[Rfam]
RNA sequence: GUCCAUGAAUCCGUGGGACCUGCCUCCUGUGGCAGCCUCCCUUCCUAGCCAUGGAAGAGCAGCGUCUUGCUUUUUGGCAAAGCUUUCACUAUCUAAUUGGUGAAAGUAUCUGACUGGAGCAAGUAACAUGU
Number, nucleotide and partner (000 for none) at each position: 001g000002u055003c054004c053005a052006u051007g050008a000009a000010u000011c000012c000013g000014u000015g041016g040017g039018a038019c000020c035021u034022g033023c032024c031025u000026c000027c000028u000029g000030u000031g024032g023033c022034a021035g020036c000037c000038u018039c017040c016041c015042u000043u000044c000045c000046u000047a000048g000049c000050c007051a006052u005053g004054g003055a002056a000057g000058a000059g000060c000061a000062g000063c000064g000065u000066c000067u000068u128069g127070c000071u125072u000073u000074u122075u121076g120077g000078c117079a000080a115081a000082g000083c106084u105085u104086u000087c000088a101089c100090u099091a098092u000093c000094u000095a000096a000097u000098u091099g090100g089101u088102g000103a000104a085105a084106g083107u000108a000109u000110c000111u000112g000113a000114c000115u080116g000117g078118a000119g000120c076121a075122a074123g000124u000125a071126a000127c069128a068129u000130g000131u000
Notes:
Small nucleolar RNA SNORA24: a 131-nucleotide sequence from Mauremys mutica. ACA24 is a member of the H/ACA class of snoRNA that guide the sites of modification of uridines to pseudouridines. Taxonomically the source falls in Mauremys (Eukaryota, Metazoa, Archelosauria, Testudinoidea). Rfam classes the family as an H/ACA-box small nucleolar RNA. Its family is annotated with RNA processing and nucleolus in the Gene Ontology.